[Rfam]
RNA sequence: AAUUGUGGAUGAUGAGAUCAAAUAAUUCACAGUUAUCCCUGUCUGAGAUAAUAUUUGCUGACUAUUUGUGAUCUGACACUAUC
Numbered sequence: 001a002a003u004u005g006u007g008g009a010u011g012a013u014g015a016g017a018u019c020a021a022a023u024a025a026u027u028c029a030c031a032g033u034u035a036u037c038c039c040u041g042u043c044u045g046a047g048a049u050a051a052u053a054u055u056u057g058c059u060g061a062c063u064a065u066u067u068g069u070g071a072u073c074u075g076a077c078a079c080u081a082u083c
Base pairs, nucleotide, nucleotide: 002082003081005079006078007077
Rfam assigns this 83-nucleotide RNA sequence from Apium graveolens to the family "Small nucleolar RNA R38". The family's RNA type in Rfam is C/D-box small nucleolar RNA. Rfam describes the family as follows. snoR38 is a C/D box small nucleolar RNA conserved across yeast, human, Arabidopsis and rice. The match comes from Rfam's covariance-model search (60 bits). Its family is annotated with RNA processing and nucleolus in the Gene Ontology. Rfam 15.1 lists 2,295 matches to the family in 1,305 species. A reference for the family is Bachellerie et al. (1995), "Antisense snoRNAs: a family of nucleolar RNAs with long complementarities to rRNA", Trends Biochem Sci.